[Rfam]
RNA sequence: UCCCACCGUAAAGGGGAGUAGCGUCAGGUUUAACCUGAAAUAAAGUCGUCAUUACAUGAACAAGGUUCAUCGGCUUUAUUGGCAUAAUUUUUGUGCUU
Numbered sequence: 001u002c003c004c005a006c007c008g009u010a011a012a013g014g015g016g017a018g019u020a021g022c023g024u025c026a027g028g029u030u031u032a033a034c035c036u037g038a039a040a041u042a043a044a045g046u047c048g049u050c051a052u053u054a055c056a057u058g059a060a061c062a063a064g065g066u067u068c069a070u071c072g073g074c075u076u077u078a079u080u081g082g083c084a085u086a087a088u089u090u091u092u093g094u095g096c097u098u
Stems, first nucleotide, its partner, number of pairs: 025037003039080010056070005081097007
Dot-bracket structure: ........................(((.......))).((((((((((.......(((((.....)))))))))))))))(((((((...))))))).

Record summary:
The family of this 98-nucleotide RNA sequence is "Manganese Mn2+ riboswitch aptamer (yybP-ykoY)". This RNA was originally discovered in E. coli during a large scale screen and was named SraF. The family was later found to exist upstream of related families of protein genes in many bacteria, including the the yybP and ykoK genes in B. subtilis. The specific functions of these proteins are unknown, but this structured RNA element may be involved in their genetic regulation as a riboswitch.